A member of the RNA family "FMN riboswitch aptamer (RFN element)" from Xylanibacillus composti, 213 nucleotides long. It scores 94 bits against the family's covariance model. The source organism's lineage runs through Bacteria, Bacillota, Bacilli, Paenibacillaceae and Xylanibacillus. The RFN element is a highly conserved domain that is found frequently in the 5'-untranslated regions of prokaryotic mRNAs that encode for flavin mononucleotide (FMN) biosynthesis and transport proteins. This element is a metabolite-dependent riboswitch that directly binds FMN in the absence of proteins.
[Rfam]
RNA sequence: CUUUCGCUUCGGGGCAGGGUGCAAUUCCCUACCGGCGGUGAUGACGGGAACAGCUUGAGACAAGGACGGUACGGAGUGCACGGCUUGUAUGAAGCGUUCUCGGCUCAGCCCGUGACCCGCUAGGUACUGCAAGCACGACAGUGUUGCAGUCCUGCGGCUGACUUGGUGAAAUUCCAGGGCCGACAGUAACAGUCUGGAUGGGAGAAGUGAGAA
Numbered sequence: 001c002u003u004u005c006g007c008u009u010c011g012g013g014g015c016a017g018g019g020u021g022c023a024a025u026u027c028c029c030u031a032c033c034g035g036c037g038g039u040g041a042u043g044a045c046g047g048g049a050a051c052a053g054c055u056u057g058a059g060a061c062a063a064g065g066a067c068g069g070u071a072c073g074g075a076g077u078g079c080a081c082g083g084c085u086u087g088u089a090u091g092a093a094g095c096g097u098u099c100u101c102g103g104c105u106c107a108g109c110c111c112g113u114g115a116c117c118c119g120c121u122a123g124g125u126a127c128u129g130c131a132a133g134c135a136c137g138a139c140a141g142u143g144u145u146g147c148a149g150u151c152c153u154g155c156g157g158c159u160g161a162c163u164u165g166g167u168g169a170a171a172u173u174c175c176a177g178g179g180c181c182g183a184c185a186g187u188a189a190c191a192g193u194c195u196g197g198a199u200g201g202g203a204g205a206a207g208u209g210a211g212a213a
Stems, first nucleotide, its partner, number of pairs: 003211008017029003031193002033182002035113004117157004162178005184196003